[Rfam]
RNA sequence: AGGUGAAGAUGAUGAAAGCCAAAUACGAAACGAGUGAUUAUCACAUUUGAUAUGAUCCAAUUUUUCAUCGCUACGUUCUUUCUGAUUCGCCU
Numbered sequence: 001a002g003g004u005g006a007a008g009a010u011g012a013u014g015a016a017a018g019c020c021a022a023a024u025a026c027g028a029a030a031c032g033a034g035u036g037a038u039u040a041u042c043a044c045a046u047u048u049g050a051u052a053u054g055a056u057c058c059a060a061u062u063u064u065u066c067a068u069c070g071c072u073a074c075g076u077u078c079u080u081u082c083u084g085a086u087u088c089g090c091c092u
Stems, first nucleotide, its partner, number of pairs: 004089004
RNA: Small nucleolar RNA R32/R81/Z41